[Rfam]
RNA sequence: GCUGUCUGUGAUGUCACUUAUUAUCGUACCUACCUUGUUUGAAUUGCUUUGAAAACAAAAAAUAUCUGAGACAUGC
Number, nucleotide and partner (000 for none) at each position: 001g076002c075003u073004g072005u071006c070007u000008g000009u000010g000011a000012u000013g000014u000015c000016a000017c000018u000019u000020a000021u000022u000023a000024u000025c000026g000027u000028a000029c000030c000031u000032a000033c000034c000035u000036u000037g000038u000039u000040u000041g000042a000043a000044u000045u000046g000047c000048u000049u000050u000051g000052a000053a000054a000055a000056c000057a000058a000059a000060a000061a000062a000063u000064a000065u000066c000067u000068g000069a000070g006071a005072c004073a003074u000075g002076c001